[Rfam]
RNA sequence: GUGAGUGUAGCUCAGCAGGUGGCAGCACCGGGUUGUGGCCUCGGAGGUCGUGGGUUCGAGCCCCUCCACUCACC
Numbered sequence: 001g002u003g004a005g006u007g008u009a010g011c012u013c014a015g016c017a018g019g020u021g022g023c024a025g026c027a028c029c030g031g032g033u034u035g036u037g038g039c040c041u042c043g044g045a046g047g048u049c050g051u052g053g054g055u056u057c058g059a060g061c062c063c064c065u066c067c068a069c070u071c072a073c074c
Stems, first nucleotide, its partner, number of pairs: 001073007010026003028044005050066001052064003
Shown here is a 74-nucleotide RNA sequence from Desulfobulbus oralis, a member of the family "tRNA". Gene Ontology term of the family: triplet codon-amino acid adaptor activity. NCBI's taxonomy places the organism under Bacteria, Pseudomonadati, Desulfobulbia, Desulfobulbaceae, Desulfobulbus. A search with the family's covariance model found it, with a score of 52 bits. The family's consensus secondary structure is taken from published work.